Record summary: Rfam assigns this 78-nucleotide RNA sequence from Dissostichus mawsoni to the family "Small nucleolar RNA SNORD79". It is annotated as a C/D-box small nucleolar RNA. Lineage of the source: Eukaryota > Eumetazoa > Actinopterygii > Neopterygii > Dissostichus. The match comes from Rfam's covariance-model search (55 bits). The family's consensus secondary structure was predicted with PFOLD. From the family's description: snoRNA U79 or Z22 is found in intron 7 of the gas5 gene in humans and is also present in mice.

RNA sequence: AGCUGUAGCUGAUGAUCUGUUGAAACAUUGGGAAUCUCUCUGAGUCAGAGUGAAAGAGAACUGUUUUCUGAUGCAGAG
Numbered sequence: 001a002g003c004u005g006u007a008g009c010u011g012a013u014g015a016u017c018u019g020u021u022g023a024a025a026c027a028u029u030g031g032g033a034a035u036c037u038c039u040c041u042g043a044g045u046c047a048g049a050g051u052g053a054a055a056g057a058g059a060a061c062u063g064u065u066u067u068c069u070g071a072u073g074c075a076g077a078g
Stems, first nucleotide, its partner, number of pairs: 003076005